[Rfam]
Nucleotides: 098
Stems, first nucleotide, its partner, number of pairs: 020082006029047006056074006
Number, partner (000 for none) and nucleotide at each position: 001000a002000a003000u004000c005000g006000u007000u008000u009000a010000u011000a012000c013000a014000u015000a016000u017000u018000a019000a020082c021081u022080c023079a024078u025077a026000u027000a028000u029047u030046c031045c032044c033043u034042g035000a036000a037000u038000a039000u040000g041000g042034c043033a044032g045031g046030g047029a048000g049000u050000u051000u052000c053000u054000a055000c056074a057073a058072g059071g060070a061069a062000c063000c064000c065000a066000a067000a068000a069061u070060u071059u072058c073057u074056u075000a076000c077025u078024a079023u080022g081021a082020g083000c084000g085000a086000u087000u088000u089000a090000u091000c092000u093000g094000u095000a096000u097000g098000c